[Rfam]
RNA sequence: UUGACCUGCGAAUAAAACACAUGAAAACAACAAUUAAUAAUACUUGGUGGUGGUACCCAACAAACUUCGGUUCGUGAGGCGCAUUGCAUUGUAUUAUUCAAAAUAAUAAGGCUUGUC
Numbered sequence: 001u002u003g004a005c006c007u008g009c010g011a012a013u014a015a016a017a018c019a020c021a022u023g024a025a026a027a028c029a030a031c032a033a034u035u036a037a038u039a040a041u042a043c044u045u046g047g048u049g050g051u052g053g054u055a056c057c058c059a060a061c062a063a064a065c066u067u068c069g070g071u072u073c074g075u076g077a078g079g080c081g082c083a084u085u086g087c088a089u090u091g092u093a094u095u096a097u098u099c100a101a102a103a104u105a106a107u108a109a110g111g112c113u114u115g116u117c
Stems, first nucleotide, its partner, number of pairs: 036098003040094004047087001049085004056079002061074001063072003
Dot-bracket structure: ...................................(((.((((...(.((((...((...(.(((....))).)...))..)))).)...)))).)))...................